[Rfam]
A member of the RNA family "Alphaproteobacteria transfer-messenger RNA" from Devosia limi, 358 nucleotides long. The base pairs follow the family's consensus structure, which is taken from published work. By type it is a non-coding RNA gene.

RNA sequence: CGAUUUGCAUACUGCCUUGGGGUUCCCUAUAUUGGAGGGGCUCGCAAGAGCUAUGGCGAUAAACUGUCAUCGUAAUAAACCUUUCGGACCCGGGGGCAGUACCCGGCGCCUCCACCAUCUUACCCGGCAACGGGGCAGCCAAUGGGGGCGAAACAGGAUCGACGAGGGCGUAAAGGGUGUGCUUUUGCUCGGUGAGGUACCACCGUUAUCGGUCCGAAACUUAUAGUUGCAAAUGACAACCAUAAGGCUCCAGUCGCUCUCGCUGCGUAAGCAGUGCUAGCAUUGGGAAAUUAAGUCCUCCGCUCCUAGCCGGGCGACAGGCGGGGUCCGCAGGCACCUGGCAACAGAAGCCUGCACC
Numbered sequence: 001c002g003a004u005u006u007g008c009a010u011a012c013u014g015c016c017u018u019g020g021g022g023u024u025c026c027c028u029a030u031a032u033u034g035g036a037g038g039g040g041c042u043c044g045c046a047a048g049a050g051c052u053a054u055g056g057c058g059a060u061a062a063a064c065u066g067u068c069a070u071c072g073u074a075a076u077a078a079a080c081c082u083u084u085c086g087g088a089c090c091c092g093g094g095g096g097c098a099g100u101a102c103c104c105g106g107c108g109c110c111u112c113c114a115c116c117a118u119c120u121u122a123c124c125c126g127g128c129a130a131c132g133g134g135g136c137a138g139c140c141a142a143u144g145g146g147g148g149c150g151a152a153a154c155a156g157g158a159u160c161g162a163c164g165a166g167g168g169c170g171u172a173a174a175g176g177g178u179g180u181g182c183u184u185u186u187g188c189u190c191g192g193u194g195a196g197g198u199a200c201c202a203c204c205g206u207u208a209u210c211g212g213u214c215c216g217a218a219a220c221u222u223a224u225a226g227u228u229g230c231a232a233a234u235g236a237c238a239a240c241c242a243u244a245a246g247g248c249u250c251c252a253g254u255c256g257c258u259c260u261c262g263c264u265g266c267g268u269a270a271g272c273a274g275u276g277c278u279a280g281c282a283u284u285g286g287g288a289a290a291u292u293a294a295g296u297c298c299u300c301c302g303c304u305c306c307u308a309g310c311c312g313g314g315c316g317a318c319a320g321g322c323g324g325g326g327u328c329c330g331c332a333g334g335c336a337c338c339u340g341g342c343a344a345c346a347g348a349a350g351c352c353u354g355c356a357c358c
Base pairs, nucleotide, nucleotide: 040051041050042049043048055189056188057187058186059185066182067181068179069178070177071176080168081167082166084165085164086163090106091105092104093103094102107150108149109148110147111146112145113144190205191204192203193202196215197214199213200212201211324339325338326337327336330355331354332353333352334351335350